This 28-nucleotide RNA from Phaeocystidibacter marisrubri belongs to the Rfam family "L19-Flavobacteria ribosomal protein leader". It scores 35 bits against the family's covariance model. The family's RNA type in Rfam is cis-regulatory leader. Taxonomically the source falls in Phaeocystidibacter (Bacteria, Pseudomonadati, Bacteroidota, Flavobacteriia).
[Rfam]
RNA sequence: UAACCUCUGGCAAGAGCUGUGUAUGUUA
Dot-bracket structure: ((((...(.(((.....)))..).))))